[Rfam]
Notes:
This 137-nucleotide RNA sequence from bacterium D16-59 belongs to the Rfam family "Ribosomal protein L10 leader". The family's RNA type in Rfam is cis-regulatory leader. The base pairs follow the family's consensus structure, which was predicted with CMfinder. A search with the family's covariance model found it, with a score of 71 bits.
RNA sequence: AAAAGCAAGCCUACACUGCCGUAGACAGCAGGUGCCGGUAAACCGGCAUAAGGAGAACCGCCUGCCGAGGAAGAUAGAAUUAUUGUACGAAUUUUAUGCCUCCCUGUUUACGUGCGGGGAGGUUUUUUGAUGUGCAU
Numbered sequence: 001a002a003a004a005g006c007a008a009g010c011c012u013a014c015a016c017u018g019c020c021g022u023a024g025a026c027a028g029c030a031g032g033u034g035c036c037g038g039u040a041a042a043c044c045g046g047c048a049u050a051a052g053g054a055g056a057a058c059c060g061c062c063u064g065c066c067g068a069g070g071a072a073g074a075u076a077g078a079a080u081u082a083u084u085g086u087a088c089g090a091a092u093u094u095u096a097u098g099c100c101u102c103c104c105u106g107u108u109u110a111c112g113u114g115c116g117g118g119g120a121g122g123u124u125u126u127u128u129g130a131u132g133u134g135c136a137u
Stems, first nucleotide, its partner, number of pairs: 028065006034047003099122009